[Rfam]
RNA: LOOT RNA
RNA sequence: GGCCUAACCUGAGUAGUUUUUAAAACGAAAGGCACGGACGAAAAAUCCAGCAAAGAAUACCAAACCCGUCGUUAGGUAUCUUUGCUGGUCAUGGUUGGAAACUCCCGUGGGGCCGAGAGGUCC
Numbered sequence: 001g002g003c004c005u006a007a008c009c010u011g012a013g014u015a016g017u018u019u020u021u022a023a024a025a026c027g028a029a030a031g032g033c034a035c036g037g038a039c040g041a042a043a044a045a046u047c048c049a050g051c052a053a054a055g056a057a058u059a060c061c062a063a064a065c066c067c068g069u070c071g072u073u074a075g076g077u078a079u080c081u082u083u084g085c086u087g088g089u090c091a092u093g094g095u096u097g098g099a100a101a102c103u104c105c106c107g108u109g110g111g112g113c114c115g116a117g118a119g120g121u122c123c
Base pairs, nucleotide, nucleotide: 001039003037004036009032010031014027047088048087049086050085051084052083053082054081055080056079058078059077060076061075063073064072065071090109091108092107093106094105097102110123111122112121113120114119